[Rfam]
RNA: ALIL pseudoknot
Organism: Psychrobacter sp. KH172YL61
RNA sequence: UGGUCUUGAAGCCCAGGCGGAGAAGGGCCGUCCACCCAGAUAAUGGUUCAGUUUAUUGAUGACUAUAGAGGUAGUUAUGGGGUCGAGCUGAUUUGUAGAGUACUACCGAUUGCCCCA
Numbered sequence: 001u002g003g004u005c006u007u008g009a010a011g012c013c014c015a016g017g018c019g020g021a022g023a024a025g026g027g028c029c030g031u032c033c034a035c036c037c038a039g040a041u042a043a044u045g046g047u048u049c050a051g052u053u054u055a056u057u058g059a060u061g062a063c064u065a066u067a068g069a070g071g072u073a074g075u076u077a078u079g080g081g082g083u084c085g086a087g088c089u090g091a092u093u094u095g096u097a098g099a100g101u102a103c104u105a106c107c108g109a110u111u112g113c114c115c116c117a
Base pairs, nucleotide, nucleotide: 016032017031018030019029020028078117079116080115081114082113089112090111092109093108095106096105097104098103